This 60-nucleotide RNA sequence from Enterobacter mori belongs to the Rfam family "ClpQY promoter". A reference for the family is Lien et al. (2009), "Regulation of clpQ(+)Y(+) (hslV(+)U(+)) gene expression in Escherichia coli", Open Microbiol J. Rfam links the family to the GO term mRNA stabilization. Lineage of the source: Bacteria > Pseudomonadota > Enterobacteriaceae > Enterobacter > Enterobacter mori. Rfam's curators put it in the seed alignment. Rfam classes the family as a cis-regulatory element. Pairs were carried over by alignment from the consensus structure.
RNA sequence: CCCUGAGCACUGGCUCAGGGCUUCUGUUUCCCGAAUCUGUAACCAGGGGGUCUGCUCGUG
Dot-bracket structure: ((((((((....))))))))........................................
Numbered sequence: 001c002c003c004u005g006a007g008c009a010c011u012g013g014c015u016c017a018g019g020g021c022u023u024c025u026g027u028u029u030c031c032c033g034a035a036u037c038u039g040u041a042a043c044c045a046g047g048g049g050g051u052c053u054g055c056u057c058g059u060g
Stems, first nucleotide, its partner, number of pairs: 001020008